[Rfam]
RNA sequence: CCCAAGCCCGUGCUCUUUCCAUUGAGCCACCCUGCUUCUCUAGCAGCAUGGCUCAGUGGAAAGAGCACGGGCUUUGGA
Numbered sequence: 001c002c003c004a005a006g007c008c009c010g011u012g013c014u015c016u017u018u019c020c021a022u023u024g025a026g027c028c029a030c031c032c033u034g035c036u037u038c039u040c041u042a043g044c045a046g047c048a049u050g051g052c053u054c055a056g057u058g059g060a061a062a063g064a065g066c067a068c069g070g071g072c073u074u075u076g077g078a
Base pairs, nucleotide, nucleotide: 002077003076005073006072007071008070009069010068012066013065014064015063016062017061018060019059022056023055024054025053026052027051028050029049
The family of this 78-nucleotide RNA from Ornithorhynchus anatinus is "mir-130 microRNA precursor family". The literature on the family includes a 2002 paper in Curr Biol by Lagos-Quintana et al., "Identification of tissue-specific microRNAs from mouse".